About this RNA
Shown here is a 108-nucleotide RNA from Methylophaga thiooxydans, a member of the family "TPP riboswitch aptamer (THI element)". Taxonomically the source falls in Methylophaga thiooxydans (Bacteria, Pseudomonadota, Gammaproteobacteria, Piscirickettsiaceae).
RNA sequence: AAUGUUGCCUCGGGGUGGCCAAAGGCCUGAGAUACCUCUUUAAAAAGAGAGAACCCGAUGAACCUGAUCCAGAUAACACUGGCGUAGGGACAGGCUAAAACACCGACU
Numbered sequence: 001a002a003u004g005u006u007g008c009c010u011c012g013g014g015g016u017g018g019c020c021a022a023a024g025g026c027c028u029g030a031g032a033u034a035c036c037u038c039u040u041u042a043a044a045a046a047g048a049g050a051g052a053a054c055c056c057g058a059u060g061a062a063c064c065u066g067a068u069c070c071a072g073a074u075a076a077c078a079c080u081g082g083c084g085u086a087g088g089g090a091c092a093g094g095c096u097a098a099a100a101c102a103c104c105g106a107c108u
Base pairs, nucleotide, nucleotide: 007095008094009093010092011057012056013055014054016051017027018026019025020024035049037047063088064087065086066085069082070081071080072079
Dot-bracket structure: ......((((((((.(((((...)))).......(.(.........).).)..)))).....((((..((((......))))..))))...)))).............